[Rfam]
Nucleotides: 134
Base pairs, nucleotide, nucleotide: 002066003065005063006062007061011058012057013056014055015054020045021044022043023042024041025040026039074124076122077121078120080118081117082116088112089111090110093107094106095105096104
Number, partner (000 for none) and nucleotide at each position: 001000g002066c003065u004000c005063u006062c007061u008000g009000a010000g011058c012057u013056c014055u015054g016000c017000a018000u019000c020045g021044u022043u023042a024041c025040a026039c027000u028000u029000g030000g031000c032000u033000u034000c035000a036000c037000c038000u039026g040025u041024g042023u043022g044021a045020c046000u047000u048000u049000c050000c051000u052000a053000a054015u055014g056013g057012g058011g059000a060000g061007a062006g063005a064000a065003a066002g067000a068000a069000a070000a071000u072000a073000g074124c075000a076122c077121c078120u079000c080118a081117a082116g083000a084000c085000c086000u087000c088112g089111g090110a091000u092000u093107g094106g095105c096104c097000u098000u099000a100000g101000g102000g103000u104096g105095g106094c107093c108000u109000c110090u111089c112088u113000u114000u115000u116082c117081u118080u119000g120078a121077g122076g123000g124074g125000u126000a127000c128000a129000a130000u131000g132000g133000g134000u

This 134-nucleotide RNA from Microcebus murinus belongs to the Rfam family "Small nucleolar RNA SNORA64/SNORA10 family". Taxonomically the source falls in Microcebus (Eukaryota, Chordata, Craniata, Tetrapoda). On this family, see Narayanan et al., EMBO J 1999: "Nucleolar localization signals of box H/ACA small nucleolar RNAs". Gene Ontology terms of the family: nucleolus and RNA processing. The family's consensus secondary structure is taken from published work.